[Rfam]
RNA sequence: AUGGAAGAUGCAUGGCUUGAGCAUCUGCAUGGUUCUUGAGAGUUAAAGCUGCACGACGAUGGAUAGUGGAAACAGAGCUUCUCAAGAAGCAUUCGUUUUCGUGGUGCCUUUCCUGACCUCCUUGGUGGUCAGCUGAGGUGCGCACAAACCGGCAAGUCACAAUACGGCAAUGGCGGAUUCCAUUAGGAGUCCU
Numbered sequence: 001a002u003g004g005a006a007g008a009u010g011c012a013u014g015g016c017u018u019g020a021g022c023a024u025c026u027g028c029a030u031g032g033u034u035c036u037u038g039a040g041a042g043u044u045a046a047a048g049c050u051g052c053a054c055g056a057c058g059a060u061g062g063a064u065a066g067u068g069g070a071a072a073c074a075g076a077g078c079u080u081c082u083c084a085a086g087a088a089g090c091a092u093u094c095g096u097u098u099u100c101g102u103g104g105u106g107c108c109u110u111u112c113c114u115g116a117c118c119u120c121c122u123u124g125g126u127g128g129u130c131a132g133c134u135g136a137g138g139u140g141c142g143c144a145c146a147a148a149c150c151g152g153c154a155a156g157u158c159a160c161a162a163u164a165c166g167g168c169a170a171u172g173g174c175g176g177a178u179u180c181c182a183u184u185a186g187g188a189g190u191c192c193u
Stems, first nucleotide, its partner, number of pairs: 050084002092148002095145002107142001109140001176191005